Rfam assigns this 47-nucleotide sequence from Planctomyces sp. SH-PL14 to the family "Acido-Lenti-1 RNA". It scores 41 bits against the family's covariance model. By type it is a small RNA. NCBI's taxonomy places the organism under Bacteria, Pseudomonadati, Planctomycetia, Planctomycetales, Planctomyces.
RNA sequence: CCCACCCUUGGAAAGGGUGGGCUACUUUCGGCCGUCCCUGCGGGACU
Numbered sequence: 001c002c003c004a005c006c007c008u009u010g011g012a013a014a015g016g017g018u019g020g021g022c023u024a025c026u027u028u029c030g031g032c033c034g035u036c037c038c039u040g041c042g043g044g045a046c047u
Base pairs, nucleotide, nucleotide: 001021002020003019004018005017006016007015008014034046035045036044037043038042